[Rfam]
The record is a 136-nucleotide RNA from Baryphthengus martii, which matches "Small nucleolar RNA SNORA15" in Rfam. Gene Ontology terms of the family: nucleolus and RNA processing. It scores 67 bits against the family's covariance model. Rfam's curators write: ACA15 is a member of the H/ACA class of snoRNA that guide the sites of modification of uridines to pseudouridines. On this family, see Huttenhofer et al., EMBO J 2001: "RNomics: an experimental approach that identifies 201 candidates for novel, small, non-messenger RNAs in mouse". Lineage of the source: Eukaryota > Eumetazoa > Saurischia > Neognathae > Baryphthengus.
RNA sequence: GCAUGGACGAAUUCUGCACUAGCUUUGCUCCAUAGCUAAUGCAGUCAGACACUAUGCCAGAAUAAAUUCCUUUUUCACACUGACUGGUAUGCUUUUCGUACAAGAACGGGCAUGCCUUUGGAAGUGGGAUACAGAA
Dot-bracket structure: ((((((.......(((((.....................))))).......))))))..........(((.((((((........(((((((((.............)))))))))..))))))..))).......